[Rfam]
RNA: Soft rot Enterobacteriaceae Rev 39 5'UTR
Organism: Brenneria goodwinii
RNA sequence: AAUUGUUGUCAUAUCAUGCCUGAUUGUGAUAACUCUGUAGAUAUUCAUUCGGCAUUAGAUUAGUGAACACUCAAUUUAUGAAAGCCUUCUCCCUAGUGAUUAGCCUAGUCGUGAUUAGCGUGGUGGUGAUUAUUAUCCCACCGUGCGGGGCAGCACUUGGACGACGAAUGGCUUAAAUCAAGCCCGAAUUCAAGAAAACCCCCGCACCGAAAGGUCGGGGGUUUUUUGUUGGGUAGAAUCUAUAACGUAAGGGAACAGAUGAUGGUUAGUCGUGCAACAUUCUGUUAUUCCCGCAACAA
Dot-bracket structure: ....(((((((((.((....)).).))))))))...((.((..(((((((.......))...)))))...)).))..........(((.(.(.((..((((.((((((.(((.....))).(((((.(((....))))))))((.((((......)))).))((.....((.((......)).))....)).((((((((((((.(((....))))))))))))))).))))))..))))..))..).).)))((((((...((........))......)))))).............